[Rfam]
RNA sequence: GAUAUGAAAAGGCAAACUUAGUGAAAACUAAGGACGCAAAACGAGGGCCUAACGUGACAUGUAUGGUCACCAUGGUAGCCGAGUUGCCAAA
Numbered sequence: 001g002a003u004a005u006g007a008a009a010a011g012g013c014a015a016a017c018u019u020a021g022u023g024a025a026a027a028c029u030a031a032g033g034a035c036g037c038a039a040a041a042c043g044a045g046g047g048c049c050u051a052a053c054g055u056g057a058c059a060u061g062u063a064u065g066g067u068c069a070c071c072a073u074g075g076u077a078g079c080c081g082a083g084u085u086g087c088c089a090a091a
Stems, first nucleotide, its partner, number of pairs: 012037002017032006040085003045080002047076003054070004
Shown here is a 91-nucleotide RNA sequence from Amphibacillus xylanus, a member of the family "c-di-GMP-I riboswitch aptamer". A search with the family's covariance model found it, with a score of 70 bits. Its family is annotated with cyclic-di-GMP binding in the Gene Ontology.